[Rfam]
This 133-nucleotide sequence from Pteropus vampyrus belongs to the Rfam family "Small nucleolar RNA SNORA84". It is annotated as an H/ACA-box small nucleolar RNA. For this family Rfam cites "Experimental RNomics: identification of 140 candidates for small non-messenger RNAs in the plant Arabidopsis thaliana" (Marker et al., Curr Biol, 2002).

RNA sequence: GCCCUGUGGGUACUGGAUGCUGUUGUGCAGGCAUAGCUCUCCAGGGCAUGUGAGGAGCCAAAGCAAUCCUGUGAUUUAUGCAUGGAGGCUGUUUCUCUUCAGUAGCCACCAUAGCCCUGUCACUGAUACAUGG
Number, nucleotide and partner (000 for none) at each position: 001g058002c057003c000004c055005u000006g000007u050008g049009g000010g047011u046012a000013c044014u043015g042016g041017a040018u000019g037020c036021u035022g034023u033024u000025g000026u000027g000028c000029a000030g000031g000032c000033a023034u022035a021036g020037c019038u000039c000040u017041c016042c015043a014044g013045g000046g011047c010048a000049u008050g007051u000052g000053a000054g000055g004056a000057g002058c001059c000060a000061a000062a000063g000064c000065a000066a000067u000068c000069c125070u000071g123072u122073g121074a120075u119076u000077u000078a000079u000080g115081c114082a112083u111084g110085g109086a000087g107088g106089c105090u104091g103092u102093u101094u000095c000096u000097c000098u000099u000100c000101a093102g092103u091104a090105g089106c088107c087108a000109c085110c084111a083112u082113a000114g081115c080116c000117c000118u000119g075120u074121c073122a072123c071124u000125g069126a000127u000128a000129c000130a000131u000132g000133g000